Overview
This 90-nucleotide sequence from Inhella proteolytica belongs to the Rfam family "c-di-GMP-I riboswitch aptamer".

RNA sequence: CGGCGCCCUGGGCACACCCGCGCGAAAGCCGGGGUCGCAAAGCUUCCGGUCUACCGCGGCGCAAGCCGCCACGACAGCGGGGCCGCCGCC
Numbered sequence: 001c002g003g004c005g006c007c008c009u010g011g012g013c014a015c016a017c018c019c020g021c022g023c024g025a026a027a028g029c030c031g032g033g034g035u036c037g038c039a040a041a042g043c044u045u046c047c048g049g050u051c052u053a054c055c056g057c058g059g060c061g062c063a064a065g066c067c068g069c070c071a072c073g074a075c076a077g078c079g080g081g082g083c084c085g086c087c088g089c090c
Base pairs, nucleotide, nucleotide: 012038013037017033018032019031020030022029023028042083043082044081046080047079048078049075050074051073056069057068058067059066
The source organism's lineage runs through Bacteria, Pseudomonadati, Pseudomonadota, Burkholderiales and Inhella. Its family is annotated with cyclic-di-GMP binding in the Gene Ontology.